[Rfam]
About this RNA: Salmonella enterica Typhi npcRNA 44: a 105-nucleotide RNA sequence from Citrobacter rodentium. The source organism's lineage runs through Bacteria, Pseudomonadota, Enterobacterales, Citrobacter and Citrobacter rodentium. The match comes from Rfam's covariance-model search (83 bits).

RNA sequence: CUUUAAAAAUCUGGAUCAAGCUGAAAAUUGAAACACAGAACAACGAGAGUUGUUCGUGAGUCUCUCAAUUUCGCAAUCAUGAAGACAACUGUAAAAGGUGACGUG
Numbered sequence: 001c002u003u004u005a006a007a008a009a010u011c012u013g014g015a016u017c018a019a020g021c022u023g024a025a026a027a028u029u030g031a032a033a034c035a036c037a038g039a040a041c042a043a044c045g046a047g048a049g050u051u052g053u054u055c056g057u058g059a060g061u062c063u064c065u066c067a068a069u070u071u072c073g074c075a076a077u078c079a080u081g082a083a084g085a086c087a088a089c090u091g092u093a094a095a096a097g098g099u100g101a102c103g104u105g
Stems, first nucleotide, its partner, number of pairs: 020074002023072004029068001034058003038055007079104003084099001086097001